[Rfam]
RNA sequence: GAGAGACAGUGAAUUAUGACAUUUUCUAUCCGCCUACUAAGCCUACUACUCGCAUUAAAUUUGCGCGGUAAGCUUAUGGACGGAAAAUAAACACACUGUCUUCAAACAUAAGAAACCCGCGCAAAUCGCGGGUUUUUUU
Numbered sequence: 001g002a003g004a005g006a007c008a009g010u011g012a013a014u015u016a017u018g019a020c021a022u023u024u025u026c027u028a029u030c031c032g033c034c035u036a037c038u039a040a041g042c043c044u045a046c047u048a049c050u051c052g053c054a055u056u057a058a059a060u061u062u063g064c065g066c067g068g069u070a071a072g073c074u075u076a077u078g079g080a081c082g083g084a085a086a087a088u089a090a091a092c093a094c095a096c097u098g099u100c101u102u103c104a105a106a107c108a109u110a111a112g113a114a115a116c117c118c119g120c121g122c123a124a125a126u127c128g129c130g131g132g133u134u135u136u137u138u139u
Stems, first nucleotide, its partner, number of pairs: 004101001007098001009096003014091002030083003034079003039074001047070004051065004112136010

The record is a 139-nucleotide RNA from Providencia heimbachae, which matches "Leucine operon leader" in Rfam. Pairs were carried over by alignment from the consensus structure, which is taken from published work. By type it is a cis-regulatory leader. Rfam describes the family as follows. At least 6 amino acid operons are known to be regulated by attenuation. Its family is annotated with leucine biosynthetic process in the Gene Ontology. The literature on the family includes a 1982 paper in Annu Rev Genet by Kolter and Yanofsky, "Attenuation in amino acid biosynthetic operons". The organism belongs to Providencia heimbachae, within Bacteria. It scores 61 bits against the family's covariance model.